[Rfam]
RNA sequence: GAGCAGCGAUACUCACUCGUUAUAUCGCCCUAAACCUGGACAUUGGUGUUCGCAGGGAUGGAAAUUCUGAAGCAGUAGCAGAGACUUGUAGUCACCAUCCUUUACAGGACGCUAUUAGAGUUGCUUACUAAUUGACACA
Numbered sequence: 001g002a003g004c005a006g007c008g009a010u011a012c013u014c015a016c017u018c019g020u021u022a023u024a025u026c027g028c029c030c031u032a033a034a035c036c037u038g039g040a041c042a043u044u045g046g047u048g049u050u051c052g053c054a055g056g057g058a059u060g061g062a063a064a065u066u067c068u069g070a071a072g073c074a075g076u077a078g079c080a081g082a083g084a085c086u087u088g089u090a091g092u093c094a095c096c097a098u099c100c101u102u103u104a105c106a107g108g109a110c111g112c113u114a115u116u117a118g119a120g121u122u123g124c125u126u127a128c129u130a131a132u133u134g135a136c137a138c139a
Stems, first nucleotide, its partner, number of pairs: 006028005036055003039051002041048002066082004087139003091136003099108002114132005
RNA: Polynucleobacter-1 RNA